Shown here is a 78-nucleotide RNA sequence from Streptococcus ictaluri, a member of the family "L17 ribosomal protein downstream element".
Nucleotides: 078
Stems, first nucleotide, its partner, number of pairs: 002048004011042003017037008056078009
Number, partner (000 for none) and nucleotide at each position: 001000u002048g003047a004046g005045u006000g007000u008000u009000a010000u011042g012041a013040u014000g015000a016000u017037g018036g019035a020034g021033u022032a023031g024030g025000u026000u027000u028000u029000a030024c031023c032022u033021a034020u035019u036018c037017u038000u039000a040013g041012u042011c043000u044000a045005g046004c047003u048002c049000u050000g051000g052000u053000c054000u055000a056078c057077c058076g059075c060074u061073a062072g063071a064070g065000a066000a067000u068000u069000u070064c071063u072062c073061u074060a075059g076058c077057g078056g

By type it is a cis-regulatory element.